[Rfam]
RNA: Small nucleolar RNA snR191
RNA sequence: GGCCAUCGCUUUGUCAAGACUACUUCUAGUGCCCAGCACUGCUCUCUCCAUGGAAGCUUGUCUGUUACGGCUUUGGCAGAUUGACUCCGCCCGCUGCCUUGGUUUCAUUCUGAAGUUCAGGGUUAGACAUGCUUUCGUUCUGAAAGGAUUGUUGUAUAGGGCCGGCUGUGUUUUGUUUUGAGUUGAGUGCUGCUCCCGCCACAUCGGUGUCCUUAUAGUUGCACUCUUAGUUACAUUUCACACAUUU
Numbered sequence: 001g002g003c004c005a006u007c008g009c010u011u012u013g014u015c016a017a018g019a020c021u022a023c024u025u026c027u028a029g030u031g032c033c034c035a036g037c038a039c040u041g042c043u044c045u046c047u048c049c050a051u052g053g054a055a056g057c058u059u060g061u062c063u064g065u066u067a068c069g070g071c072u073u074u075g076g077c078a079g080a081u082u083g084a085c086u087c088c089g090c091c092c093g094c095u096g097c098c099u100u101g102g103u104u105u106c107a108u109u110c111u112g113a114a115g116u117u118c119a120g121g122g123u124u125a126g127a128c129a130u131g132c133u134u135u136c137g138u139u140c141u142g143a144a145a146g147g148a149u150u151g152u153u154g155u156a157u158a159g160g161g162c163c164g165g166c167u168g169u170g171u172u173u174u175g176u177u178u179u180g181a182g183u184u185g186a187g188u189g190c191u192g193c194u195c196c197c198g199c200c201a202c203a204u205c206g207g208u209g210u211c212c213u214u215a216u217a218g219u220u221g222c223a224c225u226c227u228u229a230g231u232u233a234c235a236u237u238u239c240a241c242a243c244a245u246u247u
Base pairs, nucleotide, nucleotide: 003076004075005074017063018062019061020060022058023056024055025054026053028040029039030038031037032036088165089162090161091160092159096123097122098121099120100119101118102117103115104114105113106112132146133145134144135143136142137141168241169240170239174235175234176233185226186225187224188223192219193218194217197209198208199207200206